[Rfam]
RNA sequence: AUGAACAGAACACACACGGAUCUGUGUUCGGCGAUCCUGAUCGCAGAAAGAGUUUACUCUUCUGUGUUUCGGUCGAUUGCUGGACAGUUCGACGACCAAAGGAGGCACCCAUUCUCUCGUUUGGUGUCCAUUGUUUUCCGGUCGACAGAUCUCAGAUUAAAUGUCGGCAUUGGGUGGUUCACUUUGGUCUUGAGCUCCCUCAUGGUGAGCUCGGCUGGGGUUCCUGGUGUCGACGGCGUCAUAUUCCUGUUCCCUUUGCCGAUUUGGCCGUCGGCUGAUGAGGUCAGGGAGAAACCAUGGCUAGCCAACAUUC
Numbered sequence: 001a002u003g004a005a006c007a008g009a010a011c012a013c014a015c016a017c018g019g020a021u022c023u024g025u026g027u028u029c030g031g032c033g034a035u036c037c038u039g040a041u042c043g044c045a046g047a048a049a050g051a052g053u054u055u056a057c058u059c060u061u062c063u064g065u066g067u068u069u070c071g072g073u074c075g076a077u078u079g080c081u082g083g084a085c086a087g088u089u090c091g092a093c094g095a096c097c098a099a100a101g102g103a104g105g106c107a108c109c110c111a112u113u114c115u116c117u118c119g120u121u122u123g124g125u126g127u128c129c130a131u132u133g134u135u136u137u138c139c140g141g142u143c144g145a146c147a148g149a150u151c152u153c154a155g156a157u158u159a160a161a162u163g164u165c166g167g168c169a170u171u172g173g174g175u176g177g178u179u180c181a182c183u184u185u186g187g188u189c190u191u192g193a194g195c196u197c198c199c200u201c202a203u204g205g206u207g208a209g210c211u212c213g214g215c216u217g218g219g220g221u222u223c224c225u226g227g228u229g230u231c232g233a234c235g236g237c238g239u240c241a242u243a244u245u246c247c248u249g250u251u252c253c254c255u256u257u258g259c260c261g262a263u264u265u266g267g268c269c270g271u272c273g274g275c276u277g278a279u280g281a282g283g284u285c286a287g288g289g290a291g292a293a294a295c296c297a298u299g300g301c302u303a304g305c306c307a308a309c310a311u312u313c
Stems, first nucleotide, its partner, number of pairs: 018152008026085006033078004037072004042066006050059003093144005101128002104125001106123001163231001165229001169228006186216004192212006198205002235306003238301005251290005258284003266276004

About this RNA: This 313-nucleotide RNA sequence from Aspergillus nidulans belongs to the Rfam family "A. fumigatus sRNA Afu_309".